RNA sequence: UGGCGCCUAGAACAGGGACCUGGACACGGGGGAAAAAGUGAGGAAGAAGGCACUAAAGUCGGCCGAAAGUGAAAGUGGAAGAAACUCCUCCGGACGUCGCGGGAACCUGCCACGUUGGAACCAGAGGUAAGUAAUAGUGUCUGAUUAUGGGACAAGAAUUAAGCCAGCAUCAGAUUUAUAUAGGGCAAUUAAAAGAGGCUUUAAAAGCAUGAGGAGUAAAGGUUAAAAGUAAUGAUUUGUUUAGAUUUUUUGAUUUUGUAAAGGAUACCUGCCCUU
Numbered sequence: 001u002g003g004c005g006c007c008u009a010g011a012a013c014a015g016g017g018a019c020c021u022g023g024a025c026a027c028g029g030g031g032g033a034a035a036a037a038g039u040g041a042g043g044a045a046g047a048a049g050g051c052a053c054u055a056a057a058g059u060c061g062g063c064c065g066a067a068a069g070u071g072a073a074a075g076u077g078g079a080a081g082a083a084a085c086u087c088c089u090c091c092g093g094a095c096g097u098c099g100c101g102g103g104a105a106c107c108u109g110c111c112a113c114g115u116u117g118g119a120a121c122c123a124g125a126g127g128u129a130a131g132u133a134a135u136a137g138u139g140u141c142u143g144a145u146u147a148u149g150g151g152a153c154a155a156g157a158a159u160u161a162a163g164c165c166a167g168c169a170u171c172a173g174a175u176u177u178a179u180a181u182a183g184g185g186c187a188a189u190u191a192a193a194a195g196a197g198g199c200u201u202u203a204a205a206a207g208c209a210u211g212a213g214g215a216g217u218a219a220a221g222g223u224u225a226a227a228a229g230u231a232a233u234g235a236u237u238u239g240u241u242u243a244g245a246u247u248u249u250u251u252g253a254u255u256u257u258g259u260a261a262a263g264g265a266u267a268c269c270u271g272c273c274c275u276u
Base pairs, nucleotide, nucleotide: 006032007031008030016025039047086129088127089125090124095117098114099113101111102110135155137153138152140151141150142149143148160203161202162201163199164198165197210252211251212250213249214248215247216246217245220238221237222236223235224234225233261276262275263274264273266271
Rfam assigns this 276-nucleotide RNA from Piliocolobus tephrosceles to the family "Mason-Pfizer monkey virus packaging signal". Gene Ontology term of the family: viral genome packaging. Rfam 15.1 lists 2,921 matches to the family in 53 species. The family's consensus secondary structure was predicted with PFOLD. From the family's description: This family represents a group of sequences that are related to the Mason-Pfizer monkey virus (MPMV) packaging signal. The packaging signal is located in the 5' UTR and is required for specific RNA encapsidation.